[Rfam]
Nucleotides: 209
Base pairs, nucleotide, nucleotide: 001038002037003035005033006032007031013027014026015025017023018022043069044068045067046066048064049063051061052060097204098203101202102201103200104199105198106197107196108195109194110193112166113165114164115163122155123154125152126151129149130148131147132146133145134144135143136142137141168190169189170188171187173185174184175183177181
Number, partner (000 for none) and nucleotide at each position: 001038a002037u003035g004000a005033u006032c007031u008000u009000a010000c011000u012000u013027g014026a015025a016000a017023a018022g019000g020000a021000u022018c023017u024000g025015u026014u027013c028000u029000a030000u031007a032006g033005g034000c035003u036000c037002a038001u039000a040000c041000c042000a043069c044068u045067g046066u047000a048064u049063c050000a051061u052060u053000c054000c055000u056000u057000u058000c059000u060052a061051a062000g063049g064048a065000g066046a067045c068044a069043g070000a071000a072000a073000a074000c075000c076000a077000a078000g079000u080000c081000u082000g083000u084000u085000g086000g087000a088000u089000g090000a091000a092000u093000c094000a095000a096000u097204g098203a099000c100000c101202c102201a103200u104199u105198a106197g107196a108195c109194c110193a111000g112166a113165g114164c115163g116000u117000g118000a119000u120000u121000c122155a123154u124000a125152g126151u127000a128000c129149u130148c131147a132146u133145g134144g135143c136142c137141u138000c139000u140000u141137a142136g143135g144134u145133c146132a147131u148130g149129g150000c151126a152125u153000c154123a155122u156000a157000g158000a159000u160000g161000a162000u163115c164114g165113u166112u167000c168190u169189c170188a171187g172000c173185u174184c175183c176000g177181a178000u179000c180000a181177u182000a183175g184174g185173a186000c187171u188170u189169g190168g191000g192000a193110u194109g195108g196107u197106c198105u199104a200103a201102u202101g203098u204097c205000a206000g207000a208000c209000u